Overview: The record is a 106-nucleotide RNA sequence from Panicum miliaceum, which matches "Plant small nucleolar RNA R71" in Rfam. The source organism's lineage runs through Eukaryota, Magnoliopsida, commelinids, Panicinae and Panicum sect. Panicum. On this family, see Brown et al., Trends Plant Sci 2003: "Plant snoRNAs: functional evolution and new modes of gene expression". Gene Ontology terms of the family: nucleolus and RNA processing. The base pairs follow the family's consensus structure, which was predicted with PFOLD.

RNA sequence: AUCUCGUGGUGUGGACACAUGAGGAUGUACUCCUGAAGCCUCUCCCAUGCUUCAGAGAUUGACUCAUUUGACGUCUGCUGAAAACUGAAGAUUCUUCCAUGAAGAG
Numbered sequence: 001a002u003c004u005c006g007u008g009g010u011g012u013g014g015a016c017a018c019a020u021g022a023g024g025a026u027g028u029a030c031u032c033c034u035g036a037a038g039c040c041u042c043u044c045c046c047a048u049g050c051u052u053c054a055g056a057g058a059u060u061g062a063c064u065c066a067u068u069u070g071a072c073g074u075c076u077g078c079u080g081a082a083a084a085c086u087g088a089a090g091a092u093u094c095u096u097c098c099a100u101g102a103a104g105a106g
Base pairs, nucleotide, nucleotide: 003104004103005101006100057074060071